A member of the RNA family "mir-1791 microRNA precursor family" from Steatornis caripensis, 80 nucleotides long. NCBI's taxonomy places the organism under Eukaryota, Vertebrata, Neoaves, Strisores, Steatornis. The base pairs follow the family's consensus structure, which was predicted with RNAalifold.
RNA sequence: UGCACCGUGCUGGGCUGCAUCAGUCGUGCCAUGGUAUGAAACGUAACGCGAUGUGACCGAUGCAGGCUGACGUGAUGUGU
Numbered sequence: 001u002g003c004a005c006c007g008u009g010c011u012g013g014g015c016u017g018c019a020u021c022a023g024u025c026g027u028g029c030c031a032u033g034g035u036a037u038g039a040a041a042c043g044u045a046a047c048g049c050g051a052u053g054u055g056a057c058c059g060a061u062g063c064a065g066g067c068u069g070a071c072g073u074g075a076u077g078u079g080u
Stems, first nucleotide, its partner, number of pairs: 002080004006074004011069003015065007023057006030050001032048002035045002